[Rfam]
RNA: TPP riboswitch aptamer (THI element)
RNA sequence: AUGCAGCAUGACGGGUGUUCGAGACUUGCUUAGCAUGACUCGUUCUGAGAUAUACCGUUGAACUUGAUCUGGAUAAUACCAGCGAAAGGACAUGCUUCAUACUUCCU
Numbered sequence: 001a002u003g004c005a006g007c008a009u010g011a012c013g014g015g016u017g018u019u020c021g022a023g024a025c026u027u028g029c030u031u032a033g034c035a036u037g038a039c040u041c042g043u044u045c046u047g048a049g050a051u052a053u054a055c056c057g058u059u060g061a062a063c064u065u066g067a068u069c070u071g072g073a074u075a076a077u078a079c080c081a082g083c084g085a086a087a088g089g090a091c092a093u094g095c096u097u098c099a100u101a102c103u104u105c106c107u
Stems, first nucleotide, its partner, number of pairs: 006095005011058004016052001017045001020042004063088003069082004